[Rfam]
RNA: SAM/SAH riboswitch aptamer
Organism: Octadecabacter sp. SW4
RNA sequence: ACGUUGUCACAACGGCUUCCUGACGUGGCAACCUGAACCUAACGGAGCA
Number, nucleotide and partner (000 for none) at each position: 001a000002c000003g000004u031005u030006g029007u028008c027009a026010c025011a000012a000013c022014g021015g048016c047017u046018u000019c045020c044021u014022g013023a000024c000025g010026u009027g008028g007029c006030a005031a004032c000033c000034u000035g000036a000037a000038c000039c000040u000041a000042a000043c000044g020045g019046a017047g016048c015049a000